[Rfam]
RNA: tRNA
Organism: Candidatus Methylacidithermus pantelleriae
RNA sequence: GCCGCUUUAGCUCAGCUGGUAGAGCAGCGCUUUCGUAAAGCGCGGGUCGUGGGUUCGAAUCCCACAAGCGGCU
Numbered sequence: 001g002c003c004g005c006u007u008u009a010g011c012u013c014a015g016c017u018g019g020u021a022g023a024g025c026a027g028c029g030c031u032u033u034c035g036u037a038a039a040g041c042g043c044g045g046g047u048c049g050u051g052g053g054u055u056c057g058a059a060u061c062c063c064a065c066a067a068g069c070g071g072c073u
Stems, first nucleotide, its partner, number of pairs: 001072007010025004027043005049065005